Shown here is a 93-nucleotide RNA from Chrysochloris asiatica, a member of the family "Small nucleolar RNA SNORD116".
The source organism's lineage runs through Eukaryota, Vertebrata, Sarcopterygii, Tetrapoda and Chrysochloris.
On this family, see Cavaille et al., Proc Natl Acad Sci U S A 2000: "Identification of brain-specific and imprinted small nucleolar RNA genes exhibiting an unusual genomic organization".
Nucleotides: 093
Base pairs, nucleotide, nucleotide: 001093002092003091004090005089026056027055028054029053032048033047034046
Number, partner (000 for none) and nucleotide at each position: 001093g002092g003091a004090u005089u006000a007000a008000u009000g010000g011000u012000g013000a014000u015000g016000u017000c018000a019000a020000u021000a022000g023000a024000a025000a026056c027055a028054u029053u030000c031000c032048u033047u034046g035000g036000a037000a038000a039000a040000g041000c042000u043000g044000a045000a046034c047033a048032a049000u050000a051000u052000u053029a054028g055027u056026g057000a058000g059000a060000a061000g062000u063000c064000a065000c066000c067000a068000c069000c070000a071000u072000c073000u074000c075000a076000c077000u078000c079000a080000u081000a082000g083000a084000a085000c086000u087000g088000a089005g090004a091003u092002c093001c
The family's consensus secondary structure was predicted with PFOLD.